[Rfam]
Nucleotides: 081
Base pairs, nucleotide, nucleotide: 002080003079004078005077006076008074011071012070013069015067016066017065018064019063020062021061024058025057026056027055028054031053032052033051034050
Number, partner (000 for none) and nucleotide at each position: 001000u002080g003079c004078a005077a006076u007000g008074u009000c010000c011071c012070c013069a014000a015067a016066g017065u018064a019063g020062u021061g022000a023000g024058c025057a026056u027055a028054a029000g030000u031053u032052a033051u034050c035000a036000u037000g038000a039000g040000u041000u042000c043000a044000a045000a046000g047000a048000a049000a050034g051033a052032u053031a054028u055027u056026a057025u058024g059000c060000a061021c062020a063019u064018u065017a066016c067015u068000a069013u070012g071011g072000a073000u074008a075000u076006g077005u078004u079003g080002c081000a

mir-2763 microRNA precursor family: an 81-nucleotide RNA from Galleria mellonella. NCBI's taxonomy places the organism under Eukaryota, Opisthokonta, Pancrustacea, Dicondylia, Galleria. The base pairs follow the family's consensus structure, which was predicted with RNAalifold. Rfam 15.1 lists 59 matches to the family in 43 species.